[Rfam]
RNA: c-di-AMP riboswitch aptamer (ydaO/yuaA leader)
Organism: Micromonospora pattaloongensis
RNA sequence: CGGGGACCGCCGCCGGAUCGUCCAACGGCGAGCCGGGGAACCGCCACCGUGGGGUGAAUCCGCGCCAGCGGUGGCGAGCGUUCCAUCGGCGAACCCGUCAGCUGACGUGGUAGGCGGCCAACGGAAGGAACG
Number, nucleotide and partner (000 for none) at each position: 001c000002g000003g000004g000005g000006a000007c000008c000009g000010c000011c116012g115013c114014c113015g000016g000017a000018u031019c030020g029021u000022c000023c000024a000025a000026c000027g000028g000029c020030g019031a018032g111033c110034c109035g108036g000037g106038g000039a000040a000041c000042c051043g050044c000045c000046a000047c000048c000049g000050u043051g042052g096053g095054g094055u000056g000057a000058a000059u000060c071061c070062g069063c068064g000065c000066c000067a000068g063069c062070g061071g060072u000073g000074g090075c089076g087077a000078g000079c000080g000081u000082u000083c000084c000085a000086u000087c076088g000089g075090c074091g000092a000093a000094c054095c053096c052097g000098u000099c000100a000101g000102c000103u000104g000105a000106c037107g000108u035109g034110g033111u032112a000113g014114g013115c012116g011117g000118c000119c000120a000121a000122c000123g000124g000125a000126a000127g000128g000129a000130a000131c000132g000